Rfam assigns this 92-nucleotide RNA sequence from Desulfuribacillus alkaliarsenatis to the family "Selenocysteine transfer RNA".
RNA sequence: GGGGGCGGAUAGGGUACUGGUGUCCCUCCCGGUCUUCAAAACCGUGCGUGAGGCUUUAGGGUCUCAGGUGGGUUCGAUUCCCACACGCUCCC
Numbered sequence: 001g002g003g004g005g006c007g008g009a010u011a012g013g014g015u016a017c018u019g020g021u022g023u024c025c026c027u028c029c030c031g032g033u034c035u036u037c038a039a040a041a042c043c044g045u046g047c048g049u050g051a052g053g054c055u056u057u058a059g060g061g062u063c064u065c066a067g068g069u070g071g072g073u074u075c076g077a078u079u080c081c082c083a084c085a086c087g088c089u090c091c092c
Base pairs, nucleotide, nucleotide: 001092002091003090004089005088006087007086008084011027012026013025014024016023017022028046030044031043032042033041049066050065051064052063053062069083070082071081072080

A reference for the family is Mizutani and Goto (2000), "Eukaryotic selenocysteine tRNA has the 9/4 secondary structure", FEBS Lett.